This 103-nucleotide RNA sequence from Pyramidobacter sp. CG50-2 belongs to the Rfam family "THF (Tetrahydrofolate) riboswitch aptamer". A search with the family's covariance model found it, with a score of 83 bits. Tetrahydrofolate (THF) riboswitch was first reported for Ames et al. as an RNA motif in 5' untranslated (5'-UTR)regions of folate transport and biosynthesis genes in Firmicutes genomes. Rfam links the family to the GO term tetrahydrofolate metabolic process. On this family, see Ames et al., Chem Biol 2010: "A eubacterial riboswitch class that senses the coenzyme tetrahydrofolate".
[Rfam]
RNA sequence: AGCAGAGUAAAAACCGAUGCGUCAAGUGCCGGCUGAACGGGGAGUUGACAGCUGGACGAAAAGCCUUCCGGGCUUGCGGUGUCGGGUUUUGCAUCCCGCUGCU
Numbered sequence: 001a002g003c004a005g006a007g008u009a010a011a012a013a014c015c016g017a018u019g020c021g022u023c024a025a026g027u028g029c030c031g032g033c034u035g036a037a038c039g040g041g042g043a044g045u046u047g048a049c050a051g052c053u054g055g056a057c058g059a060a061a062a063g064c065c066u067u068c069c070g071g072g073c074u075u076g077c078g079g080u081g082u083c084g085g086g087u088u089u090u091g092c093a094u095c096c097c098g099c100u101g102c103u
Base pairs, nucleotide, nucleotide: 001103002102003101004100005099010090011089012088013087014086015084016083017082018081019080020078021077022076026057027056029055030054031053032052033051034050035049040096041095042094044092061075062074063073064072